[Rfam]
RNA sequence: CGGCGCAGCUAGGGGAGCCAGGUGAGCCUGGCUGAGAGUGCGGCCCGACGAUGCCGCUGACCCUUUGAACCUGACCUGGGUUAUGCCAGCGUAGGGAAUGCCUGAGGUGGUCCGUC
Number, nucleotide and partner (000 for none) at each position: 001c000002g000003g000004c000005g000006c104007a103008g102009c000010u100011a064012g063013g062014g061015g000016a058017g032018c031019c030020a029021g028022g000023u000024g000025a000026g000027c000028c021029u020030g019031g018032c017033u000034g000035a000036g000037a000038g000039u000040g057041c056042g055043g054044c000045c000046c000047g000048a000049c000050g000051a000052u000053g000054c043055c042056g041057c040058u016059g000060a000061c014062c013063c012064u011065u000066u000067g000068a000069a000070c095071c094072u093073g092074a000075c000076c089077u088078g087079g086080g000081u000082u000083a000084u000085g000086c079087c078088a077089g076090c000091g000092u073093a072094g071095g070096g000097a000098a000099u000100g010101c000102c008103u007104g006105a000106g000107g000108u000109g000110g000111u000112c000113c000114g000115u000116c000